[Rfam]
RNA sequence: GCCGAGUUAGGCCACGCUAACUUGUAACCCAAGUGGGGGCCUUAGGGUGGUGGAACGUGGCUCUGCUUCUGCUUGGUUGGGCUCGUGGGGUGGCACUAUAUUGGCUUGCCCACUCCAAGUUGAGAGUUGGGUCAUGGAACUUUGGGGGCUGAAGUCUCAGGUGUCCUGACUCCUAGACUCAGGAGCACUGCGCCUCGCUGGCUUUACAGAGCAGCAACAACUGCGGGCUUCCAACAGCGGAUGGAUUACAAGCCGCUGCACCAUUAGUCCGUGUUGCGCCAGGCCUAGUUCUCGAACCAUCACCUUU
Number, nucleotide and partner (000 for none) at each position: 001g040002c039003c038004g023005a022006g021007u020008u019009a018010g017011g000012c000013c000014a000015c000016g000017c010018u009019a008020a007021c006022u005023u004024g000025u000026a000027a000028c037029c036030c035031a000032a000033g000034u000035g030036g029037g028038g003039g002040c001041c000042u000043u000044a306045g305046g304047g303048u302049g301050g300051u299052g298053g297054a000055a000056c294057g293058u000059g291060g290061c288062u287063c000064u000065g284066c283067u000068u000069c000070u000071g000072c000073u282074u281075g280076g279077u278078u000079g270080g269081g268082c267083u266084c000085g264086u263087g000088g262089g000090g261091u260092g259093g000094c258095a257096c000097u000098a000099u000100a000101u000102u255103g254104g253105c252106u251107u250108g249109c000110c244111c243112a000113c000114u241115c240116c239117a000118a000119g235120u234121u233122g232123a000124g230125a229126g228127u227128u000129g172130g171131g170132u169133c168134a167135u000136g165137g164138a000139a162140c161141u160142u159143u000144g157145g156146g155147g000148g000149c000150u000151g000152a000153a000154g000155u146156c145157u144158c000159a142160g141161g140162u139163g000164u137165c136166c000167u134168g133169a132170c131171u130172c129173c000174u000175a000176g000177a000178c000179u226180c225181a000182g000183g222184a000185g000186c000187a000188c000189u000190g000191c000192g215193c214194c000195u000196c000197g000198c209199u208200g207201g000202c000203u000204u000205u000206a000207c200208a199209g198210a000211g000212c000213a000214g193215c192216a000217a000218c000219a000220a000221c000222u183223g000224c000225g180226g179227g127228c126229u125230u124231c000232c122233a121234a120235c119236a000237g000238c000239g116240g115241a114242u000243g111244g110245a000246u000247u000248a000249c108250a107251a106252g105253c104254c103255g102256c000257u095258g094259c092260a091261c090262c088263a086264u085265u000266a083267g082268u081269c080270c079271g000272u000273g000274u000275u000276g000277c000278g077279c076280c075281a074282g073283g066284c065285c000286u000287a062288g061289u000290u060291c059292u000293c057294g056295a000296a000297c053298c052299a051300u050301c049302a048303c047304c046305u045306u044307u000
The family of this 307-nucleotide RNA from Arachis hypogaea is "Plant signal recognition particle RNA".
The base pairs follow the family's consensus structure, which is taken from published work.